[Rfam]
RNA sequence: AAAAUACUUCAGGGUUGGGUGCAAUUCCCUACCGGUGGUUAUAGCCCACGAGCUUAUUUUUAUAAGUUGAUUUGGUGAAAAUCCAAAGCCGACGGUAAAGUCCGGAUGAAAGAAGUCUAUA
Number, nucleotide and partner (000 for none) at each position: 001a000002a000003a000004a118005u000006a116007c115008u114009u113010c112011a000012g000013g000014g000015u000016u000017g029018g028019g027020u000021g000022c000023a000024a000025u000026u000027c019028c018029c017030u000031a101032c100033c091034g090035g049036u048037g047038g046039u000040u000041a000042u000043a000044g089045c088046c038047c037048a036049c035050g000051a000052g067053c066054u065055u000056a000057u000058u000059u000060u000061u000062a000063u000064a000065a054066g053067u052068u000069g000070a000071u087072u086073u085074g084075g083076u000077g000078a000079a000080a000081a000082u000083c075084c074085a073086a072087a071088g045089c044090c034091g033092a000093c104094g103095g102096u000097a000098a000099a000100g032101u031102c095103c094104g093105g000106a000107u000108g000109a000110a000111a000112g010113a009114a008115g007116u006117c000118u004119a000120u000121a000